The record is an 84-nucleotide RNA from Rhodoferax sp. OV413, which matches "SAH (S-adenosyl-L-homocysteine) riboswitch aptamer" in Rfam.
The match comes from Rfam's covariance-model search (55 bits).

RNA sequence: CCUCCCAAGGAGCGUUGCAGCGGGCUUGCCCCCGUCAGGCUUGGGAACCUCGCCAUCCUGAGAUUGCAACGACGCUCACCUGAA
Numbered sequence: 001c002c003u004c005c006c007a008a009g010g011a012g013c014g015u016u017g018c019a020g021c022g023g024g025c026u027u028g029c030c031c032c033c034g035u036c037a038g039g040c041u042u043g044g045g046a047a048c049c050u051c052g053c054c055a056u057c058c059u060g061a062g063a064u065u066g067c068a069a070c071g072a073c074g075c076u077c078a079c080c081u082g083a084a
Base pairs, nucleotide, nucleotide: 003046004045005044006043007042008041021034022033023032024031